The family of this 159-nucleotide sequence from Lysobacter sp. Root96 is "FMN riboswitch aptamer (RFN element)".

[Rfam]
RNA sequence: UAACGUCUUCAGGGCGGGGUGAGAUUCCCCACCGGCGGUAGGCGCAGGGCCGAAGGGUCUCCGCGCGAGCCCGCGAGCGCCUCCGGCCGCACCGGAGGGUCAGCAGAUCCGGUCCGACGCCGGAGCCGACGGUCACAGUCCGGAUGAAAGAAGACGGCU
Numbered sequence: 001u002a003a004c005g006u007c008u009u010c011a012g013g014g015c016g017g018g019g020u021g022a023g024a025u026u027c028c029c030c031a032c033c034g035g036c037g038g039u040a041g042g043c044g045c046a047g048g049g050c051c052g053a054a055g056g057g058u059c060u061c062c063g064c065g066c067g068a069g070c071c072c073g074c075g076a077g078c079g080c081c082u083c084c085g086g087c088c089g090c091a092c093c094g095g096a097g098g099g100u101c102a103g104c105a106g107a108u109c110c111g112g113u114c115c116g117a118c119g120c121c122g123g124a125g126c127c128g129a130c131g132g133u134c135a136c137a138g139u140c141c142g143g144a145u146g147a148a149a150g151a152a153g154a155c156g157g158c159u
Stems, first nucleotide, its partner, number of pairs: 004156007017029003031139002033128002035074004069126002077104002108124005130142003

Lineage of the source: Bacteria > Pseudomonadati > Pseudomonadota > Lysobacteraceae > Lysobacter. The match comes from Rfam's covariance-model search (94 bits). Pairs were carried over by alignment from the consensus structure, which is taken from published work.